Background
The record is a 108-nucleotide RNA sequence from Sinomonas humi, which matches "Glycine riboswitch aptamer" in Rfam. From the family's description: This family represents the bacterial glycine riboswitch. Its family is annotated with glycine biosynthetic process in the Gene Ontology. A search with the family's covariance model found it, with a score of 36 bits.
[Rfam]
RNA sequence: CGACUCUGGAAAGCAGCCCGGGCUUUGUUCGGGCUCACCGACGGUGCAAGCGGAUCAAUAGAAGCCAAGGUCUGCGGAAACUCUCAGGUCCAAUACAGAGCGGGGAGG
Numbered sequence: 001c002g003a004c005u006c007u008g009g010a011a012a013g014c015a016g017c018c019c020g021g022g023c024u025u026u027g028u029u030c031g032g033g034c035u036c037a038c039c040g041a042c043g044g045u046g047c048a049a050g051c052g053g054a055u056c057a058a059u060a061g062a063a064g065c066c067a068a069g070g071u072c073u074g075c076g077g078a079a080a081c082u083c084u085c086a087g088g089u090c091c092a093a094u095a096c097a098g099a100g101c102g103g104g105g106a107g108g
Stems, first nucleotide, its partner, number of pairs: 001103001004100005015035007037089003040085002044083001046081001051076002